Source information:
The record is a 318-nucleotide RNA from Flavobacterium indicum, which matches "Bacterial RNase P class A" in Rfam. The family's RNA type in Rfam is ribozyme. Taxonomically the source falls in Flavobacterium indicum (Bacteria, Pseudomonadati, Bacteroidota, Flavobacteriaceae).
RNA sequence: AGUGCAGACCGCCUUAUCGUCCCGCCUUGGCGGGGAGGAAAGUCCGGACACCACAGAGUAGCAUAGCGGGUAACGCCCGUCAUCUCGUUUUUCGGGACGAGAGAGGACAAGUGCAACAGAAAGUAUGUACAGGUAAUGCUGUAGUGAAACCAGGUAAACUCUAUGCGGUGAAAUGCCAUGUAUAUCAGCAGUUAAGGGCUACUCGUUCGUUGCUGAGGGGUAGGCAGAUAGAGCUAAUUGGUAACAAUUAGUCCAGAUAAAUGAUAAGGAUUCCAUCUUAUUGGAAUACAGAAUCCGGCUUACAGGUCUGCAUUUUUU
Dot-bracket structure: ((((((((((((((((((.((((((....))))))....[[[.[[[[[((((...[[[[.((((((((((.....)))))(.((((((((....))))))))..)((...((((.............(((((......)))))..........))..)))))))))))))...((((.......(((((......((((.]]]]))))...)))))......))))......((((((((....))))))))..........)))))))........................]]]]]]]].).))))))))))....